[Rfam]
RNA sequence: UUUGGAAAAUGAUGCUAAAAGAUAUCGAAUUAUGUUAACAUAGGCACAUUUGUGCUGUGCUGAACGAUAAUCUAUUUGCACGUCAGUCUGAUUCCAAA
Numbered sequence: 001u002u003u004g005g006a007a008a009a010u011g012a013u014g015c016u017a018a019a020a021g022a023u024a025u026c027g028a029a030u031u032a033u034g035u036u037a038a039c040a041u042a043g044g045c046a047c048a049u050u051u052g053u054g055c056u057g058u059g060c061u062g063a064a065c066g067a068u069a070a071u072c073u074a075u076u077u078g079c080a081c082g083u084c085a086g087u088c089u090g091a092u093u094c095c096a097a098a
Stems, first nucleotide, its partner, number of pairs: 001098007
Rfam assigns this 98-nucleotide sequence from Centaurea solstitialis to the family "Small nucleolar RNA Z122". A reference for the family is Qu et al. (1999), "Seven novel methylation guide small nucleolar RNAs are processed from a common polycistronic transcript by Rat1p and RNase III in yeast", Mol Cell Biol. Pairs were carried over by alignment from the consensus structure, which was predicted with PFOLD. It scores 53 bits against the family's covariance model. The family has 23 seed sequences and 822 matches in Rfam 15.1. Rfam classes the family as a C/D-box small nucleolar RNA.